Shown here is a 138-nucleotide RNA sequence from Eleutherodactylus coqui, a member of the family "Small nucleolar RNA SNORA8".
Rfam links the family to the GO terms RNA processing and nucleolus.
The organism belongs to Eleutherodactylus, within Eukaryota.
[Rfam]
Nucleotides: 138
Base pairs, nucleotide, nucleotide: 002060003059004058005057006056007055015053018046019045020044021043023041024039025038026037027036028035063127064126067123068122069121070119071118072117073116079108080107081106082105083104
Number, partner (000 for none) and nucleotide at each position: 001000u002060g003059c004058a005057c006056u007055g008000u009000a010000u011000g012000g013000u014000a015053u016000c017000u018046g019045c020044a021043c022000a023041c024039a025038a026037u027036g028035g029000c030000u031000u032000u033000u034000c035028c036027u037026g038025u039024u040000g041023g042000g043021g044020u045019g046018u047000u048000c049000a050000u051000u052000a053015a054000g055007c056006a057005g058004u059003g060002c061000a062000a063127c064126a065000c066000u067123a068122a069121a070119u071118c072117a073116g074000c075000a076000a077000g078000u079108g080107g081106c082105a083104u084000c085000g086000u087000u088000g089000g090000u091000u092000u093000u094000c095000a096000g097000g098000c099000c100000u101000c102000u103000u104083g105082u106081g107080u108079u109000u110000g111000g112000g113000a114000a115000c116073c117072u118071g119070g120000u121069u122068u123067u124000u125000a126064u127063g128000c129000u130000g131000a132000u133000a134000c135000a136000a137000u138000g
Its Rfam clan is "SNORA8 clan".
Rfam describes the family as follows. ACA8 is a member of the H/ACA class of snoRNA that guide the sites of modification of uridines to pseudouridines.
It scores 77 bits against the family's covariance model.
Rfam classes the family as an H/ACA-box small nucleolar RNA.